[Rfam]
RNA sequence: CCGGUCGCCGAAAUGGGGCCGGCGAAACCAGGGAGCGCCAGCUCUUUGGCGCUCCUCGUAUCUAUGUUGCUCGAUGGAGGAUGUAGCUAUGAGAA
Numbered sequence: 001c002c003g004g005u006c007g008c009c010g011a012a013a014u015g016g017g018g019c020c021g022g023c024g025a026a027a028c029c030a031g032g033g034a035g036c037g038c039c040a041g042c043u044c045u046u047u048g049g050c051g052c053u054c055c056u057c058g059u060a061u062c063u064a065u066g067u068u069g070c071u072c073g074a075u076g077g078a079g080g081a082u083g084u085a086g087c088u089a090u091g092a093g094a095a
Base pairs, nucleotide, nucleotide: 001022002021003020004019005018006017008016009015032054034053035052036051037050038049039048040047055093056092057091058090059089060088062086063085064084065083066082067081068080070079071078072077
Repression of heat shock gene expression (ROSE) element: a 95-nucleotide RNA sequence from Mesorhizobium sp. LSHC420B00. For this family Rfam cites "A mRNA-based thermosensor controls expression of rhizobial heat shock genes" (Nocker et al., Nucleic Acids Res, 2001). About the family: This family represents a 5' UTR cis-regulatory element found in heat shock mRNAs and is known as the ROSE (repression of heat shock gene expression) element. The ROSE element is a negative regulator of heat shock gene expression. The secondary structure is thought to be regulated by temperature. Its family is annotated with response to temperature stimulus and regulation of translation in the Gene Ontology. A search with the family's covariance model found it, with a score of 76 bits.